The record is a 91-nucleotide sequence from Oryzias latipes, which matches "mir-204 microRNA precursor family" in Rfam. Lineage of the source: Eukaryota > Opisthokonta > Bilateria > Atherinomorphae > Oryzias. The literature on the family includes a 2005 paper in Genes Dev by Chen et al., "The developmental miRNA profiles of zebrafish as determined by small RNA cloning". Rfam's curators put it in the seed alignment. Rfam 15.1 lists 1,730 matches to the family in 644 species.
[Rfam]
RNA sequence: CUAUGACAUGUGGACUUCCCUUUGUCAUCCUAUGCCUGGAAUCAAAUAAAAGGGGGCUGGGAAGGCAAAGGGAUGCUCAGCUGUCAUACAA
Numbered sequence: 001c002u003a004u005g006a007c008a009u010g011u012g013g014a015c016u017u018c019c020c021u022u023u024g025u026c027a028u029c030c031u032a033u034g035c036c037u038g039g040a041a042u043c044a045a046a047u048a049a050a051a052g053g054g055g056g057c058u059g060g061g062a063a064g065g066c067a068a069a070g071g072g073a074u075g076c077u078c079a080g081c082u083g084u085c086a087u088a089c090a091a
Stems, first nucleotide, its partner, number of pairs: 017073006024066002028062005034057004